[Rfam]
Nucleotides: 197
Base pairs, nucleotide, nucleotide: 015058016057017056019054060101067100068099069098070097072095073094120191121190122189123188124187125186126185127184128183129182130181131180132179134153135152136151137150138149
Number, partner (000 for none) and nucleotide at each position: 001000a002000c003000a004000c005000g006000a007000g008000a009000a010000a011000g012000g013000a014000g015058g016057u017056g018000a019054u020000c021000c022000g023000g024000u025000a026000a027000a028000u029000g030000a031000u032000g033000c034000u035000u036000a037000c038000c039000c040000g041000g042000a043000c044000g045000c046000g047000u048000g049000a050000g051000g052000u053000g054019g055000c056017u057016g058015c059000g060101g061000c062000c063000u064000a065000g066000a067100g068099c069098c070097g071000a072095c073094g074000c075000c076000a077000c078000a079000g080000u081000g082000u083000g084000a085000c086000g087000c088000c089000g090000g091000u092000a093000u094073c095072g096000c097070c098069g099068g100067c101060c102000a103000a104000u105000c106000u107000c108000a109000a110000u111000g112000c113000a114000g115000u116000c117000a118000c119000c120191c121190g122189g123188c124187c125186c126185g127184c128183g129182g130181g131180c132179u133000c134153g135152u136151c137150g138149g139000a140000c141000u142000c143000g144000u145000c146000c147000g148000a149138c150137c151136g152135g153134c154000g155000c156000c157000g158000u159000u160000c161000g162000c163000c164000c165000a166000c167000c168000g169000c170000g171000a172000g173000c174000g175000g176000a177000g178000c179132a180131g181130c182129c183128c184127g185126c186125g187124g188123g189122c190121c191120g192000u193000u194000c195000u196000g197000c